[Rfam]
RNA sequence: AAGUUGAUUAAAAAGAGAGAGGCUUUAGAGAGGAGUGUGAACAAAACUCUCAUGGCAUGGAGAAAAAAAACUCAAAUUGAAAUCGAAGGAGAAAUAACAUUUGAUAAAUGUUUUUUUCCCCUUUUUGAUUUAGGGUUCUUUCUUUCAUCCCAUUUCCCUCGAUGACGGUCCUUCCAAGUUACACUUGAUAUGAGCCCU
Numbered sequence: 001a002a003g004u005u006g007a008u009u010a011a012a013a014a015g016a017g018a019g020a021g022g023c024u025u026u027a028g029a030g031a032g033g034a035g036u037g038u039g040a041a042c043a044a045a046a047c048u049c050u051c052a053u054g055g056c057a058u059g060g061a062g063a064a065a066a067a068a069a070a071c072u073c074a075a076a077u078u079g080a081a082a083u084c085g086a087a088g089g090a091g092a093a094a095u096a097a098c099a100u101u102u103g104a105u106a107a108a109u110g111u112u113u114u115u116u117u118c119c120c121c122u123u124u125u126u127g128a129u130u131u132a133g134g135g136u137u138c139u140u141u142c143u144u145u146c147a148u149c150c151c152a153u154u155u156c157c158c159u160c161g162a163u164g165a166c167g168g169u170c171c172u173u174c175c176a177a178g179u180u181a182c183a184c185u186u187g188a189u190a191u192g193a194g195c196c197c198u
Stems, first nucleotide, its partner, number of pairs: 007189005019160004025052001027050004036043002054153001055151001059148001060144006069137005074131009088119007097111004102106001163181004167175002